The family of this 80-nucleotide RNA from Alligator sinensis is "Mammalian CPEB3 ribozyme". Pairs were carried over by alignment from the consensus structure, which is taken from published work. The source organism's lineage runs through Eukaryota, Bilateria, Euteleostomi, Alligatorinae and Alligator. About the family: The mammalian CPEB3 ribozyme is a self cleaving RNA located in the second intron of the CPEB3 gene which belongs to a family of genes regulating messenger RNA polyadenylation.
[Rfam]
RNA sequence: AGAGGUUACAAGUUUGAGGCCAUAGCAUAAAUGCUCAUAGCGUGGCCUGUCAAGACUCCAAUGAAUCUGCAAACUCUGCU
Numbered sequence: 001a002g003a004g005g006u007u008a009c010a011a012g013u014u015u016g017a018g019g020c021c022a023u024a025g026c027a028u029a030a031a032u033g034c035u036c037a038u039a040g041c042g043u044g045g046c047c048u049g050u051c052a053a054g055a056c057u058c059c060a061a062u063g064a065a066u067c068u069g070c071a072a073a074c075u076c077u078g079c080u
Stems, first nucleotide, its partner, number of pairs: 018047004024080004029075001031043003051069001053068003057064002